[Rfam]
RNA sequence: UAUUUCUUUUGGCAAAGCUACUGAAAGGUAGUGACGCAAAGCUAUAGGGACUUACUUCUCGGUGUGAGAAAUGUCAGCCAGUUGCAGAA
Dot-bracket structure: ...........((...((((((....))))))...))..((((...(((((....((.(......).))...)))..))))))......

Shown here is an 89-nucleotide RNA sequence from Paenibacillus lentus, a member of the family "c-di-GMP-I riboswitch aptamer". A search with the family's covariance model found it, with a score of 65 bits. The family's consensus secondary structure is taken from published work.